RNA sequence: GUGACCUUUAAAUUAGUCCCGUGAGACUAAGAAGGAAAUGGCGUACCAUGAACUAUGUGCAUGGACACCUCUUUCUUGCUUGCGGGCAAGGAAGAGGUUUUUUGU
Numbered sequence: 001g002u003g004a005c006c007u008u009u010a011a012a013u014u015a016g017u018c019c020c021g022u023g024a025g026a027c028u029a030a031g032a033a034g035g036a037a038a039u040g041g042c043g044u045a046c047c048a049u050g051a052a053c054u055a056u057g058u059g060c061a062u063g064g065a066c067a068c069c070u071c072u073u074u075c076u077u078g079c080u081u082g083c084g085g086g087c088a089a090g091g092a093a094g095a096g097g098u099u100u101u102u103u104g105u
Base pairs, nucleotide, nucleotide: 005035006034007033008032009031013030014029015028016027017026018025046064047063048062049061050060052058053057065100067098068097069096070095071094072093073092074091075090076089077088078087079086080085

About this RNA:
This 105-nucleotide sequence from Desulfitobacterium hafniense belongs to the Rfam family "PyrR binding site". The match comes from Rfam's covariance-model search (54 bits).